Rfam assigns this 350-nucleotide sequence to the family "Alphaproteobacteria transfer-messenger RNA".
Bacterial tmRNA, also known as 10Sa RNA or SsrA, is named for its dual tRNA and mRNA-like properties. Its role is to liberate the mRNA from a stalled ribosome. To accomplish this part of the tmRNA is used as a reading frame that ends in a translation stop signal. The broken mRNA is replaced in the ribosome by the tmRNA and translation of the tmRNA leads to addition of a proteolysis tag to the incomplete protein enabling recognition by a protease. Recently a number of permuted tmRNA genes have been found encoded in two parts. tmRNAs have been identified in eubacteria and some chloroplasts but are absent from archaeal and eukaryote nuclear genomes.
By type it is a non-coding RNA gene.
Pairs were carried over by alignment from the consensus structure, which is taken from published work.

RNA sequence: CCCCUACUCAUUUGCUGUGAAAAAGAGUAUAUAUAGAUUGUCGGUUUACCGACUAUGGCGAUAUACGGGCUUCAUAAUAAACCCAUCGGACCCGGGGGCAGUACCCGGCGCCUCCACCAUUCAUCUCCAUCAUUUAUUUGGGGGGGCGAAACAGGAUCGACGAGGGCGUAAAGGUUGUUUCCGUCGCUCGGUAUUGUACCACCGUUAUCGGGCUAUUUUUUAGUUGCAAAUGACAACUAUGCGGAAGUUGCUGUCGCUGCGUAAGUAGCGCCAACACUUCAAUUCAAGCCCUUAUCCGUCGCAGGAUAAGGCGGGGUUCGGCGGGCACCUGGCAACAGAAGCCCACCACU
Numbered sequence: 001c002c003c004c005u006a007c008u009c010a011u012u013u014g015c016u017g018u019g020a021a022a023a024a025g026a027g028u029a030u031a032u033a034u035a036g037a038u039u040g041u042c043g044g045u046u047u048a049c050c051g052a053c054u055a056u057g058g059c060g061a062u063a064u065a066c067g068g069g070c071u072u073c074a075u076a077a078u079a080a081a082c083c084c085a086u087c088g089g090a091c092c093c094g095g096g097g098g099c100a101g102u103a104c105c106c107g108g109c110g111c112c113u114c115c116a117c118c119a120u121u122c123a124u125c126u127c128c129a130u131c132a133u134u135u136a137u138u139u140g141g142g143g144g145g146g147c148g149a150a151a152c153a154g155g156a157u158c159g160a161c162g163a164g165g166g167c168g169u170a171a172a173g174g175u176u177g178u179u180u181c182c183g184u185c186g187c188u189c190g191g192u193a194u195u196g197u198a199c200c201a202c203c204g205u206u207a208u209c210g211g212g213c214u215a216u217u218u219u220u221u222a223g224u225u226g227c228a229a230a231u232g233a234c235a236a237c238u239a240u241g242c243g244g245a246a247g248u249u250g251c252u253g254u255c256g257c258u259g260c261g262u263a264a265g266u267a268g269c270g271c272c273a274a275c276a277c278u279u280c281a282a283u284u285c286a287a288g289c290c291c292u293u294a295u296c297c298g299u300c301g302c303a304g305g306a307u308a309a310g311g312c313g314g315g316g317u318u319c320g321g322c323g324g325g326c327a328c329c330u331g332g333c334a335a336c337a338g339a340a341g342c343c344c345a346c347c348a349c350u
Stems, first nucleotide, its partner, number of pairs: 040053005057188005067181003070177001073174001082166003086163003092108005109148007189204004194215001196213001199211002314330004320347002323344003